About this RNA:
A member of the RNA family "Small nucleolar RNA Z122" from Malus domestica, 77 nucleotides long. Pairs were carried over by alignment from the consensus structure, which was predicted with PFOLD. Rfam 15.1 lists 822 matches to the family in 247 species. For this family Rfam cites "The high diversity of snoRNAs in plants: identification and comparative study of 120 snoRNA genes from Oryza sativa" (Chen et al., Nucleic Acids Res, 2003).
RNA sequence: UUUGGGGAAUGAUGAUUAAACUGUGACAUAGGCUUCUGCUCUGCUGAAUUAUGUUUGCACGUCAGUCUGAUCCCAAA
Numbered sequence: 001u002u003u004g005g006g007g008a009a010u011g012a013u014g015a016u017u018a019a020a021c022u023g024u025g026a027c028a029u030a031g032g033c034u035u036c037u038g039c040u041c042u043g044c045u046g047a048a049u050u051a052u053g054u055u056u057g058c059a060c061g062u063c064a065g066u067c068u069g070a071u072c073c074c075a076a077a
Stems, first nucleotide, its partner, number of pairs: 001077007